FMN riboswitch aptamer (RFN element): a 153-nucleotide sequence from Selenomonas sp. F0473.
[Rfam]
RNA sequence: AUGCUCUUUGAGGCGGGGUGCAAAUCCCCACCGGCGGUACAGCCCGCAAGCCUAUGACGGGAUGGAGAAAUCCUCCCCGAGGCACGAUUCGGUGUGAUUCCGAAGCCGACAGUGAAGGAGGAAACUCCGCAGUCUGGAUGGGAAAAGGCGCGU
Dot-bracket structure: ..(((((((......(((.......)))...((((((....[[))))....(.............................).....(((((.......)))))]])).(((.....................))).......))))).))..
The match comes from Rfam's covariance-model search (78 bits). Lineage of the source: Bacteria > Bacillati > Selenomonadales > Selenomonadaceae > Selenomonas.